[Rfam]
RNA sequence: CGCACAGAUGGGGAUGGAGUCCCCCGACAACCGCCCGGCGGUAGGUGACCGUGAUGGGCUGAUGACUCCUGCUUGAGG
Number, nucleotide and partner (000 for none) at each position: 001c000002g000003c000004a000005c000006a000007g000008a000009u000010g025011g024012g023013g022014a000015u000016g069017g068018a067019g066020u065021c064022c013023c012024c011025c010026g000027a000028c000029a000030a000031c000032c000033g059034c058035c057036c056037g000038g000039c000040g000041g000042u000043a000044g000045g000046u000047g000048a000049c000050c000051g000052u000053g000054a000055u000056g036057g035058g034059c033060u000061g000062a000063u000064g021065a020066c019067u018068c017069c016070u000071g000072c000073u000074u000075g000076a000077g000078g000